[Rfam]
RNA: L31-Firmicutes ribosomal protein leader
RNA sequence: CUCUGGGUCUGCAGGAGACUCAGGGCAAAAGGAG
Numbered sequence: 001c002u003c004u005g006g007g008u009c010u011g012c013a014g015g016a017g018a019c020u021c022a023g024g025g026c027a028a029a030a031g032g033a034g
Stems, first nucleotide, its partner, number of pairs: 001025005008018003